Rfam assigns this 150-nucleotide RNA from Staphylococcus aureus to the family "Small pathogenicity island RNA C (srn_3610)". From the family's description: Reduces autolysin ALT expression by binding to the mRNA and preventing ribosome loading. Reduces virulence and bacterial load in mouse model. SarA TF represses its transcription by binding to an essential 22 bp region. NCBI's taxonomy places the organism under Bacteria, Bacillati, Staphylococcaceae, Staphylococcus, Staphylococcus aureus. On this family, see Le Pabic et al., Nucleic Acids Res 2015: "A bacterial regulatory RNA attenuates virulence, spread and human host cell phagocytosis". By type it is a small RNA. Gene Ontology terms of the family: sRNA-mediated gene silencing and mRNA binding.
RNA sequence: AAUAAGUCAACGACCAUGCGUGGACAGUAAAACGAAGUACAUGCGAAUGUAGUAGCCGUUUACUAUGAGACUAGGCAUUAUAAUUGAAUAUCAUAGUAUAAAUUGCCAUGAGAGUAGAAGCUUCAGUUUAUGAAGACUUCGAAAUCAUGG
Number, nucleotide and partner (000 for none) at each position: 001a000002a000003u000004a000005a000006g000007u023008c022009a000010a021011c020012g019013a000014c000015c000016a000017u000018g000019c012020g011021u010022g008023g007024a000025c000026a000027g000028u000029a000030a000031a000032a000033c000034g000035a000036a000037g000038u098039a097040c096041a091042u090043g089044c086045g085046a084047a000048u000049g000050u000051a000052g000053u000054a000055g076056c075057c074058g071059u070060u069061u068062a000063c000064u000065a000066u000067g000068a061069g060070a059071c058072u000073a000074g057075g056076c055077a000078u000079u000080a000081u000082a000083a000084u046085u045086g044087a000088a000089u043090a042091u041092c000093a000094u000095a000096g040097u039098a038099u000100a000101a000102a000103u000104u000105g000106c150107c149108a148109u147110g146111a145112g000113a000114g000115u000116a000117g140118a139119a138120g137121c135122u134123u133124c132125a131126g000127u000128u000129u000130a000131u125132g124133a123134a122135g121136a000137c120138u119139u118140c117141g000142a000143a000144a000145u111146c110147a109148u108149g107150g106